[Rfam]
RNA sequence: UGACUUUUUUCUAAGUCAGACUUCUUUAGCUUUGACGAAAUCUAUAGAAAAAUAUAGCAAUAUUUUUAACACAAAAGAAGAAAACUAUCCAAAUAUAUUCAAUGUUAGAUGUAAUGAAACCAACUUGGUGCUAUAAGUGUUGCUAUAUUUUUUCUAUAAACUUGGUUAAACAUUCAAGAAGUUUGAUUUUUUUAAAGAAAGUCAA
Numbered sequence: 001u002g003a004c005u006u007u008u009u010u011c012u013a014a015g016u017c018a019g020a021c022u023u024c025u026u027u028a029g030c031u032u033u034g035a036c037g038a039a040a041u042c043u044a045u046a047g048a049a050a051a052a053u054a055u056a057g058c059a060a061u062a063u064u065u066u067u068a069a070c071a072c073a074a075a076a077g078a079a080g081a082a083a084a085c086u087a088u089c090c091a092a093a094u095a096u097a098u099u100c101a102a103u104g105u106u107a108g109a110u111g112u113a114a115u116g117a118a119a120c121c122a123a124c125u126u127g128g129u130g131c132u133a134u135a136a137g138u139g140u141u142g143c144u145a146u147a148u149u150u151u152u153u154c155u156a157u158a159a160a161c162u163u164g165g166u167u168a169a170a171c172a173u174u175c176a177a178g179a180a181g182u183u184u185g186a187u188u189u190u191u192u193u194a195a196a197g198a199a200a201g202u203c204a205a
Base pairs, nucleotide, nucleotide: 005200006199007198008197009196013189014188015187016186017185018184019183020182021181022180023179024178025177026176031170032169033168034167035166045156046155047154048153049152050151051150052149055145056144057143059141060140061139062138063137064136065135067133068132072127073126074125